[Rfam]
RNA sequence: UGCUGUUAGUGAUGAUUUUCAAAGUAACAACAGAUGGGAAUCUCUCUGAAAGAGAAUGAAGGUUAAUUUGGAACUGAAACAGUA
Numbered sequence: 001u002g003c004u005g006u007u008a009g010u011g012a013u014g015a016u017u018u019u020c021a022a023a024g025u026a027a028c029a030a031c032a033g034a035u036g037g038g039a040a041u042c043u044c045u046c047u048g049a050a051a052g053a054g055a056a057u058g059a060a061g062g063u064u065a066a067u068u069u070g071g072a073a074c075u076g077a078a079a080c081a082g083u084a
Stems, first nucleotide, its partner, number of pairs: 001084007
RNA: Small nucleolar RNA SNORD79
Organism: Microcebus murinus